[Rfam]
RNA sequence: ACCGAAGAAGGGAGGUGAUCCGGAGCAUGUAUGCACACCGGACGUCGGAGGUGGCUGCGGGCUAGCGCCCGUCACCACUCAGUGCGGUGCCGGACCCGUGCGCGGAUGCGCGUGCAGCCGGCCCAAUCCCAGCAGUCACCCGACCCGCGAGUCGCCGGUACGUCCGGCCGGCCCCUCCCUCUGGGAGGACCAGACUCGCGGGUCGUCUGCG
Numbered sequence: 001a002c003c004g005a006a007g008a009a010g011g012g013a014g015g016u017g018a019u020c021c022g023g024a025g026c027a028u029g030u031a032u033g034c035a036c037a038c039c040g041g042a043c044g045u046c047g048g049a050g051g052u053g054g055c056u057g058c059g060g061g062c063u064a065g066c067g068c069c070c071g072u073c074a075c076c077a078c079u080c081a082g083u084g085c086g087g088u089g090c091c092g093g094a095c096c097c098g099u100g101c102g103c104g105g106a107u108g109c110g111c112g113u114g115c116a117g118c119c120g121g122c123c124c125a126a127u128c129c130c131a132g133c134a135g136u137c138a139c140c141c142g143a144c145c146c147g148c149g150a151g152u153c154g155c156c157g158g159u160a161c162g163u164c165c166g167g168c169c170g171g172c173c174c175c176u177c178c179c180u181c182u183g184g185g186a187g188g189a190c191c192a193g194a195c196u197c198g199c200g201g202g203u204c205g206u207c208u209g210c211g
Base pairs, nucleotide, nucleotide: 015058016057017056019054060123061122062121063120065118066117067115068114070112071111072110141205142204143203144202145201146200147199148198149197150196151195152194153193154172155171156170157169158168159167